Shown here is a 394-nucleotide sequence from Leifsonia xyli, a member of the family "transfer-messenger RNA".
[Rfam]
RNA sequence: GGGGAUGAUCGGUUUCGACAUUGUCUGCGUGAGUAUGAGAAGCGGGUCGAGGACGCAUGGUUAUCUCGUUAACGAUCCAUGCAAAAAAUAAGUGCCAAUUCCAAGAGCACUGUCUCGGCCAAGGCCGACUUCGCCCUCGCGGCGUAAGUUCACCUCAGCCAUCUGAAGAGGCCGUCAGACCGGGAACUGUUCUCUACCCGGAGCCUGGCGUCAGUGAGAGAACUCGCUUCUGCGUUGAGUAUCAGGGCGCAGAGGGACUUCAACUGAUACUAGGCCCGCCGGAACAGGUGCCAGCGACACGUUCCGGGGCCGAGAAAGCGACACACUGGCUACGCCCGUAGAAGGCAUAUGACCACAGCAGUGGACGGGGGUUCGAUUCCCCCCAUCUCCACCA
Dot-bracket structure: (((((((...........((((((........(((((.....((((((((((..[[[[[....))))).........]]]]].............................................(..(.((.......................)).)..)........[[[[[[.[[[[.....(((((((..]]]]...]]]]]]......)))))))...(((((((((..[[[[[[...)))))))))..........]]]]]].(((((.......(....[[[[..[....).....)))))............]..]]]]...))))).......))))).......))))))...(((((.......))))))))))))....

It is one of the family's seed sequences. Lineage of the source: Bacteria > Microbacteriaceae > Leifsonia > Leifsonia xyli > Leifsonia xyli subsp. xyli.